[Rfam]
RNA: U11 spliceosomal RNA
RNA sequence: AAAAAGGGUAUCUGUCAUGAGUGGCACAUGCAGGGCAACUUGUCUGUCUUACGUGUGGAAUCGACAUCAAGAGAUUUUGGAUGCAUAAUUUUUUGGUACUUGGGCAGCUAGUGAUCGUUAGUCCUGGCGCCCUU
Numbered sequence: 001a002a003a004a005a006g007g008g009u010a011u012c013u014g015u016c017a018u019g020a021g022u023g024g025c026a027c028a029u030g031c032a033g034g035g036c037a038a039c040u041u042g043u044c045u046g047u048c049u050u051a052c053g054u055g056u057g058g059a060a061u062c063g064a065c066a067u068c069a070a071g072a073g074a075u076u077u078u079g080g081a082u083g084c085a086u087a088a089u090u091u092u093u094u095g096g097u098a099c100u101u102g103g104g105c106a107g108c109u110a111g112u113g114a115u116c117g118u119u120a121g122u123c124c125u126g127g128c129g130c131c132c133u134u
Base pairs, nucleotide, nucleotide: 008084009083010082011081012080013026014025015024016023017022027055028054029053030052032050033049034048035047036046037045056079057078058077059076060075061074062073102132103131104130105129107128108127109126110125111124113123114122115121
Dot-bracket structure: .......((((((((((....)))))((((.((((((.......)))))).))))(((((((..........)))))))))))).................((((.(((((.(((.....))))))))))))..